[Rfam]
RNA sequence: GUUUCGCUGAUUUACUUCAAACCUGUUGUGAGGUAAGUUAACGAUGCCUUAACCACGCUGUCUGCUGAGCUUGACUCCGGGCAGUGUGGCUAUUUU
Dot-bracket structure: .(.(((.((((((((((((.........)))))))))))).))).)....(.((((((((((((..(((.....))))))))))))))).).....